[Rfam]
RNA sequence: CGAGCCGGAGCGGGAGAGUCCUCGUCGUCAGACGGGGCACCGAAGGAGCAACAUCCCCGCCAAUCUCUCAGGUACCAGUUACCGCUUCUGGCCA
Numbered sequence: 001c002g003a004g005c006c007g008g009a010g011c012g013g014g015a016g017a018g019u020c021c022u023c024g025u026c027g028u029c030a031g032a033c034g035g036g037g038c039a040c041c042g043a044a045g046g047a048g049c050a051a052c053a054u055c056c057c058c059g060c061c062a063a064u065c066u067c068u069c070a071g072g073u074a075c076c077a078g079u080u081a082c083c084g085c086u087u088c089u090g091g092c093c094a
Base pairs, nucleotide, nucleotide: 007088008087009086010085011084012083013082020037021036022035023034039073040072041071042069043068046067047066048065
RNA: Glycine riboswitch aptamer